The family of this 135-nucleotide RNA from Haplochromis burtoni is "Small nucleolar RNA SNORA69". It scores 50 bits against the family's covariance model. Rfam's curators write: U69 is a member of the H/ACA class of small nucleolar RNAs (snoRNAs) which act as guides in the the modification of uridines to pseudouridines.
RNA sequence: AAAGCAGGUCUGCAAUUGCAGCACUUAGUUACAGUGGAGUGCUGUCAUUAACCCUGCUGAGAGCAUGUUUCUGCUGCAGAGCUUGUUCUCUCACUUGCUGUGCCAGUGAUGAGGAAACUCUGUAGCCGAACACUA
Number, nucleotide and partner (000 for none) at each position: 001a000002a000003a058004g057005c056006a055007g054008g053009u000010c000011u000012g000013c000014a000015a000016u000017u000018g000019c044020a043021g042022c041023a040024c039025u038026u037027a000028g000029u000030u000031a000032c000033a000034g000035u000036g000037g026038a025039g024040u023041g022042c021043u020044g019045u000046c000047a000048u000049u000050a000051a000052c000053c008054c007055u006056g005057c004058u003059g000060a000061g000062a000063g000064c000065a000066u000067g000068u000069u129070u000071c128072u000073g126074c125075u124076g123077c122078a121079g120080a000081g000082c000083u000084u000085g000086u114087u113088c000089u111090c000091u109092c108093a107094c106095u105096u000097g103098c000099u000100g000101u000102g000103c097104c000105a095106g094107u093108g092109a091110u000111g089112a000113g087114g086115a000116a000117a000118c000119u000120c079121u078122g077123u076124a075125g074126c073127c000128g071129a069130a000131c000132a000133c000134u000135a000
Taxonomically the source falls in Haplochromis (Eukaryota, Teleostomi, Acanthomorphata, Pseudocrenilabrinae). Rfam links the family to the GO terms RNA processing and nucleolus.